[Rfam]
RNA sequence: AGCCGUUCGGGCGGCUAUAAACAGACCUCAGGCCCGAAGCGUGGCGGCACCUGCCGCCGGUGGUA
Numbered sequence: 001a002g003c004c005g006u007u008c009g010g011g012c013g014g015c016u017a018u019a020a021a022c023a024g025a026c027c028u029c030a031g032g033c034c035c036g037a038a039g040c041g042u043g044g045c046g047g048c049a050c051c052u053g054c055c056g057c058c059g060g061u062g063g064u065a
Stems, first nucleotide, its partner, number of pairs: 001016004006038006025064003032040001042059007

A member of the RNA family "Pistol ribozyme" from Alistipes putredinis, 65 nucleotides long. The family's consensus secondary structure is taken from published work.